This 98-nucleotide RNA from Pseudonocardia cypriaca belongs to the Rfam family "mraW RNA". It is annotated as a cis-regulatory element.
RNA sequence: GACAUCCAACCCGCCGGUGCCACCACCCGGUAGCCCUGGCGCACCUUCCCCGGUGCCAGGUCUGCCGGGUGGAGGCAUCGCCGGGAGGCAGCCCGAGA
Numbered sequence: 001g002a003c004a005u006c007c008a009a010c011c012c013g014c015c016g017g018u019g020c021c022a023c024c025a026c027c028c029g030g031u032a033g034c035c036c037u038g039g040c041g042c043a044c045c046u047u048c049c050c051c052g053g054u055g056c057c058a059g060g061u062c063u064g065c066c067g068g069g070u071g072g073a074g075g076c077a078u079c080g081c082c083g084g085g086a087g088g089c090a091g092c093c094c095g096a097g098a
Stems, first nucleotide, its partner, number of pairs: 010085004015080002018077002021074001023072011035060008